[Rfam]
RNA sequence: AUUAUAAGUCGCCGUAUAGCUGGGGUUUCCUAGUGGCAGAUGCCUUUUCUCUGCAAUGCCCUUGGAAAUCCCAAAUGCAGGUGACUAUC
Numbered sequence: 001a002u003u004a005u006a007a008g009u010c011g012c013c014g015u016a017u018a019g020c021u022g023g024g025g026u027u028u029c030c031u032a033g034u035g036g037c038a039g040a041u042g043c044c045u046u047u048u049c050u051c052u053g054c055a056a057u058g059c060c061c062u063u064g065g066a067a068a069u070c071c072c073a074a075a076u077g078c079a080g081g082u083g084a085c086u087a088u089c
Base pairs, nucleotide, nucleotide: 008085009084010083011082012081013080014078015077016076021073022072023071024070025069026068027067028066029065032062033061035060036059037058038057041055042054043053

A member of the RNA family "mir-2788 microRNA precursor family" from Pieris brassicae, 89 nucleotides long. A search with the family's covariance model found it, with a score of 71 bits. Gene Ontology terms of the family: RISC complex and miRNA-mediated post-transcriptional gene silencing.